[Rfam]
Record summary
The record is a 74-nucleotide RNA from Cloeon dipterum, which matches "mir-219 microRNA precursor family" in Rfam. Taxonomically the source falls in Cloeon (Eukaryota, Mandibulata, Hexapoda, Insecta). The base pairs follow the family's consensus structure, which was predicted with RNAalifold. Its family is annotated with miRNA-mediated post-transcriptional gene silencing and RISC complex in the Gene Ontology. It scores 67 bits against the family's covariance model.
RNA sequence: UCAGGCUUUGAUUGUCCAAACGCAAUUCUUGUGUCGCUAUGAAUCAAGAACUGUGAAUGGACAUCGAUAUCUGG
Numbered sequence: 001u002c003a004g005g006c007u008u009u010g011a012u013u014g015u016c017c018a019a020a021c022g023c024a025a026u027u028c029u030u031g032u033g034u035c036g037c038u039a040u041g042a043a044u045c046a047a048g049a050a051c052u053g054u055g056a057a058u059g060g061a062c063a064u065c066g067a068u069a070u071c072u073g074g
Stems, first nucleotide, its partner, number of pairs: 002073004009066004014062005021055004026050006